Record summary: mir-2 microRNA precursor family: a 70-nucleotide RNA sequence from Anopheles sinensis. The organism belongs to Myzorhynchus, within Eukaryota. On this family, see Ambros, Cell 2001: "microRNAs: tiny regulators with great potential". The family's consensus secondary structure was predicted with PFOLD.
RNA sequence: UCCCUCUCAAAGUGGCUGUGAAAUGAUGUUAUUUACAUUGCCAUAUCACAGCCAGCUUUGAUGAGCUAGG
Numbered sequence: 001u002c003c004c005u006c007u008c009a010a011a012g013u014g015g016c017u018g019u020g021a022a023a024u025g026a027u028g029u030u031a032u033u034u035a036c037a038u039u040g041c042c043a044u045a046u047c048a049c050a051g052c053c054a055g056c057u058u059u060g061a062u063g064a065g066c067u068a069g070g
Base pairs, nucleotide, nucleotide: 005064006063007061008060009059010058011057012056013054014053015052016051017050018049019048020047021046024045025044